[Rfam]
RNA sequence: CCGUGUUGUGUAUCUUGGACGUUUCCUCCCUAAACUUGGGCCGUGCUCGCGCGCGGCCCUUUUUUUGCGUGACC
Numbered sequence: 001c002c003g004u005g006u007u008g009u010g011u012a013u014c015u016u017g018g019a020c021g022u023u024u025c026c027u028c029c030c031u032a033a034a035c036u037u038g039g040g041c042c043g044u045g046c047u048c049g050c051g052c053g054c055g056g057c058c059c060u061u062u063u064u065u066u067g068c069g070u071g072a073c074c
Stems, first nucleotide, its partner, number of pairs: 001018002038059009
Dot-bracket structure: ((..............))...................(((((((((....)))))))))...............